This 152-nucleotide RNA sequence belongs to the Rfam family "cold-seep-1 RNA". Rfam classes the family as a small RNA. The sequence is in the family's curated seed alignment.
[Rfam]
RNA sequence: GGUCCCCACCAAGGCAGUGUUACUUAACUACGCCGAUGGUGGGGCGGUUACACCUCGCGGUGUUUCCGGGCCUUCCACUUCCGUUGCCGGGCGUCGGUCUGACAGAGUGCGUCACAUUGCGGUGCCACUCGGGGCCGAAGGUCUGGGGGCGA
Dot-bracket structure: .(((((((.....((.(((((....))).))))............((..(((((....)))))..))..........................(((((((....((((....(((......)))..)))).))))))).....)))))))..
Notes: The base pairs follow the family's consensus structure, which is taken from published work.